[Rfam]
RNA sequence: UGGUGAUGACGGGAAAAGUUUUCGCAGCCACAAAACAGUUGCCCGGCUAUUGGGAAUGACUGAAUCUGCUGUGAGGAAAGUCCCUGGACCUGCGAUUGAGAGAAUCGGCUCCUUGGAGCGCUCAGUCGAGGUGAAUGGCUCUGUAGCCAGCCUUCUGCCAGUAAUUCGGCCAUGACAUCCUGUUUUCAAGGACUAGUCUAGGCUGGUAGAGGGUGCCUCGAUUUUCGUCAAAUCAAAGUGACGCUUGCCAAACUGCAUAGGGCUUACCCAGUUGAUCACC
Numbered sequence: 001u002g003g004u005g006a007u008g009a010c011g012g013g014a015a016a017a018g019u020u021u022u023c024g025c026a027g028c029c030a031c032a033a034a035a036c037a038g039u040u041g042c043c044c045g046g047c048u049a050u051u052g053g054g055a056a057u058g059a060c061u062g063a064a065u066c067u068g069c070u071g072u073g074a075g076g077a078a079a080g081u082c083c084c085u086g087g088a089c090c091u092g093c094g095a096u097u098g099a100g101a102g103a104a105u106c107g108g109c110u111c112c113u114u115g116g117a118g119c120g121c122u123c124a125g126u127c128g129a130g131g132u133g134a135a136u137g138g139c140u141c142u143g144u145a146g147c148c149a150g151c152c153u154u155c156u157g158c159c160a161g162u163a164a165u166u167c168g169g170c171c172a173u174g175a176c177a178u179c180c181u182g183u184u185u186u187c188a189a190g191g192a193c194u195a196g197u198c199u200a201g202g203c204u205g206g207u208a209g210a211g212g213g214u215g216c217c218u219c220g221a222u223u224u225u226c227g228u229c230a231a232a233u234c235a236a237a238g239u240g241a242c243g244c245u246u247g248c249c250a251a252a253c254u255g256c257a258u259a260g261g262g263c264u265u266a267c268c269c270a271g272u273u274g275a276u277c278a279c280c
Stems, first nucleotide, its partner, number of pairs: 002280006008273003016246004022074007037051003041047002078265003082262004094106004108119004146216002151213004157207001167205004191198002
RNA: RNase MRP
Organism: Ditylenchus dipsaci